RNA: MIR2617 microRNA precursor family
RNA sequence: AAGCAGUGUGACAUGCCCGUUUGGUGAUAAACUCUGAUGUAUUAUUUAUUAUUAAUUGUUUGGAAUAACGGGGUGUUACAAAAGU
Numbered sequence: 001a002a003g004c005a006g007u008g009u010g011a012c013a014u015g016c017c018c019g020u021u022u023g024g025u026g027a028u029a030a031a032c033u034c035u036g037a038u039g040u041a042u043u044a045u046u047u048a049u050u051a052u053u054a055a056u057u058g059u060u061u062g063g064a065a066u067a068a069c070g071g072g073g074u075g076u077u078a079c080a081a082a083a084g085u
Stems, first nucleotide, its partner, number of pairs: 002085001007080008016072006